[Rfam]
RNA sequence: ACGCAUCUAUCUGACAGACCUGGAGCAGUUACUGUCUGCUGCUAAGGUUCCAGUGCAGAUGCAAGAAAAAAGGGUCCUCGCGCUUUCUUUCUGUCUGACUAUGGCAGCCAAGAUUGAAUGGGGGAGUACAGUG
Numbered sequence: 001a002c003g004c005a006u007c008u009a010u011c012u013g014a015c016a017g018a019c020c021u022g023g024a025g026c027a028g029u030u031a032c033u034g035u036c037u038g039c040u041g042c043u044a045a046g047g048u049u050c051c052a053g054u055g056c057a058g059a060u061g062c063a064a065g066a067a068a069a070a071a072g073g074g075u076c077c078u079c080g081c082g083c084u085u086u087c088u089u090u091c092u093g094u095c096u097g098a099c100u101a102u103g104g105c106a107g108c109c110a111a112g113a114u115u116g117a118a119u120g121g122g123g124g125a126g127u128a129c130a131g132u133g
Base pairs, nucleotide, nucleotide: 003062004061005060006059007058008057011053012052017049018048019047020046024040025039026038027037028036075125076124077123078122079121083116086113087112088111089110091107092106093105094104095103
The record is a 133-nucleotide RNA from Pteropus vampyrus, which matches "Small nucleolar RNA SNORA31" in Rfam. Rfam describes the family as follows. ACA31 (SNORA31) belongs to the H/ACA class of snoRNAs which are thought to guide the sites of modification of uridines to pseudouridines. ACA31 is predicted to guide the pseudouridylation of U3713 in 28S rRNA and U218 in 18S rRNA. This family includes the mouse homologue snoMBI-161. A reference for the family is Huttenhofer et al. (2001), "RNomics: an experimental approach that identifies 201 candidates for novel, small, non-messenger RNAs in mouse", EMBO J. Gene Ontology terms of the family: RNA processing and nucleolus. Rfam 15.1 lists 2,094 matches to the family in 626 species. NCBI's taxonomy places the organism under Eukaryota, Vertebrata, Amniota, Pteropodoidea, Pteropus. The match comes from Rfam's covariance-model search (59 bits).